[Rfam]
RNA sequence: GGCCCCUUAGCUCAGUUGGAUAGAGCAUCCGCCUUCUAAGCGGACGGCCGAGGGUUCGAGUCCUUCAGGGGCCG
Numbered sequence: 001g002g003c004c005c006c007u008u009a010g011c012u013c014a015g016u017u018g019g020a021u022a023g024a025g026c027a028u029c030c031g032c033c034u035u036c037u038a039a040g041c042g043g044a045c046g047g048c049c050g051a052g053g054g055u056u057c058g059a060g061u062c063c064u065u066c067a068g069g070g071g072c073c074g
Stems, first nucleotide, its partner, number of pairs: 001073007010026004028044005050066005
Dot-bracket structure: (((((((..((((.........)))).(((((.......))))).....(((((.......)))))))))))).

The record is a 74-nucleotide RNA sequence from Rhodovulum sp. BSW8, which matches "tRNA" in Rfam. NCBI's taxonomy places the organism under Bacteria, Pseudomonadati, Pseudomonadota, Paracoccaceae, Rhodovulum. The family's consensus secondary structure is taken from published work. It scores 69 bits against the family's covariance model.